The record is a 293-nucleotide sequence from Marmota marmota, which matches "Metazoan signal recognition particle RNA" in Rfam.
RNA sequence: GCCAGUUGUGGUAAUGCCCACCUGUAAUCCCUGCUACUUGGGACGCUGAGGCAGGAGGAUUGUUUGAGCAUAGGACUUGGGGCUCUAGUGUGCUAUAAAGAUCGUGUGUCUGCAGUGUUUAGCAUAAAUAUGGUGACCUCCUGCUAGUGGGGGACCACCAGGUUGCCUAAGGAGGGUCGAACUUACCCAGGUGAGAAAUGGAGUAAUCAAGACUCACAUGCUGAUCCAUAGUGGGAUCUCAUCUGUGAAUAAGCUCUGCACUCCAGUCUGAGCAGAAUAAGAUUCUGCCUCUU
Numbered sequence: 001g002c003c004a005g006u007u008g009u010g011g012u013a014a015u016g017c018c019c020a021c022c023u024g025u026a027a028u029c030c031c032u033g034c035u036a037c038u039u040g041g042g043a044c045g046c047u048g049a050g051g052c053a054g055g056a057g058g059a060u061u062g063u064u065u066g067a068g069c070a071u072a073g074g075a076c077u078u079g080g081g082g083c084u085c086u087a088g089u090g091u092g093c094u095a096u097a098a099a100g101a102u103c104g105u106g107u108g109u110c111u112g113c114a115g116u117g118u119u120u121a122g123c124a125u126a127a128a129u130a131u132g133g134u135g136a137c138c139u140c141c142u143g144c145u146a147g148u149g150g151g152g153g154a155c156c157a158c159c160a161g162g163u164u165g166c167c168u169a170a171g172g173a174g175g176g177u178c179g180a181a182c183u184u185a186c187c188c189a190g191g192u193g194a195g196a197a198a199u200g201g202a203g204u205a206a207u208c209a210a211g212a213c214u215c216a217c218a219u220g221c222u223g224a225u226c227c228a229u230a231g232u233g234g235g236a237u238c239u240c241a242u243c244u245g246u247g248a249a250u251a252a253g254c255u256c257u258g259c260a261c262u263c264c265a266g267u268c269u270g271a272g273c274a275g276a277a278u279a280a281g282a283u284u285c286u287g288c289c290u291c292u293u
Stems, first nucleotide, its partner, number of pairs: 001046002004023002007020002010017001028043003048291009060280006068273002071270004077266006086258003090254001094251003103245002106242003110235002113233002115229001117226001119224007127164003131160005138153006166172002174215005192201001194199001
About the family: The signal recognition particle (SRP) is a universally conserved ribonucleoprotein. It is involved in the co-translational targeting of proteins to membranes. The eukaryotic SRP consists of a 300-nucleotide 7S RNA and six proteins: SRPs 72, 68, 54, 19, 14, and 9. Archaeal SRP consists of a 7S RNA and homologues of the eukaryotic SRP19 and SRP54 proteins.
The organism belongs to Marmota marmota, within Eukaryota.
A search with the family's covariance model found it, with a score of 106 bits.
The family's RNA type in Rfam is non-coding RNA gene.